[Rfam]
RNA sequence: GUUUGGCUUAGUUAGGAGGCAGAGAUGGAUUCGAAAACCGGAGAUAUCGGGUUUCUGAUGUUUCCGGUCUAUUUAACUCGGGCCGUUUGAUUGGGAUCUUGAGUUUUCCUUCUCUAUCAAUUUCCUCCCAAGCAGCCUUGGACAUUU
Numbered sequence: 001g002u003u004u005g006g007c008u009u010a011g012u013u014a015g016g017a018g019g020c021a022g023a024g025a026u027g028g029a030u031u032c033g034a035a036a037a038c039c040g041g042a043g044a045u046a047u048c049g050g051g052u053u054u055c056u057g058a059u060g061u062u063u064c065c066g067g068u069c070u071a072u073u074u075a076a077c078u079c080g081g082g083c084c085g086u087u088u089g090a091u092u093g094g095g096a097u098c099u100u101g102a103g104u105u106u107u108c109c110u111u112c113u114c115u116a117u118c119a120a121u122u123u124c125c126u127c128c129c130a131a132g133c134a135g136c137c138u139u140g141g142a143c144a145u146u147u
Base pairs, nucleotide, nucleotide: 004021005020007018008017009016037068038067039066040065044061045060046059047058048057078141079140080138081137082136083135086132087131088130089129093126094125095124096123099120
The record is a 147-nucleotide sequence from Hibiscus trionum, which matches "Small nucleolar RNA U19" in Rfam. The family's RNA type in Rfam is H/ACA-box small nucleolar RNA. Lineage of the source: Eukaryota > Euphyllophyta > Spermatophyta > Magnoliopsida > Hibiscus.